[Rfam]
RNA: mir-160 microRNA precursor family
Nucleotides: 085
Base pairs, nucleotide, nucleotide: 001085002084004082005081006080008078009077010076011075012074013073014072016070017069018068019067021065022064023063024062027059028058029057
Number, partner (000 for none) and nucleotide at each position: 001085g002084u003000a004082u005081g006080c007000u008078u009077g010076g011075c012074u013073c014072c015000u016070u017069g018068u019067a020000a021065g022064c023063c024062a025000c026000c027059u028058a029057u030000g031000a032000a033000g034000u035000c036000a037000a038000u039000c040000a041000a042000c043000a044000a045000c046000u047000g048000a049000u050000g051000a052000a053000c054000u055000u056000u057029g058028u059027a060000u061000g062024u063023g064022g065021c066000a067019u068018a069017c070016a071000g072014g073013g074012a075011g076010c077009c078008a079000g080006g081005c082004a083000c084002a085001c